The record is a 144-nucleotide RNA sequence from Clostridium sp. CAG:43, which matches "SAM riboswitch aptamer (S box leader)" in Rfam.
RNA sequence: CCCUUAUUCAGAGUGAUGGAGAUACAAAGGAUCUAUGAAGUCACGGCAACCCCGUUACAUGGGACUGAAAAUUGGUCUCAGCAGGGAACGGAAGGUGCCAGCCUGAGCGAGGAACCGGGAGAUCGGUUUAUCGAGCAAUAAGAG
Numbered sequence: 001c002c003c004u005u006a007u008u009c010a011g012a013g014u015g016a017u018g019g020a021g022a023u024a025c026a027a028a029g030g031a032u033c034u035a036u037g038a039a040g041u042c043a044c045g046g047c048a049a050c051c052c053c054g055u056u057a058c059a060u061g062g063g064a065c066u067g068a069a070a071a072u073u074g075g076u077c078u079c080a081g082c083a084g085g086g087a088a089c090g091g092a093a094g095g096u097g098c099c100a101g102c103c104u105g106a107g108c109g110a111g112g113a114a115c116c117g118g119g120a121g122a123u124c125g126g127u128u129u130a131u132c133g134a135g136c137a138a139u140a141a142g143a144g
Base pairs, nucleotide, nucleotide: 001144003142004141005140006139007138008137013044014043015042016041017040021033022032023031030104045099046098047097048096050095051094052091053090054089055088108133109132110131112129113128114127115126116125117124118123
NCBI's taxonomy places the organism under Bacteria, Bacillati, Clostridia, Clostridiaceae, Clostridium.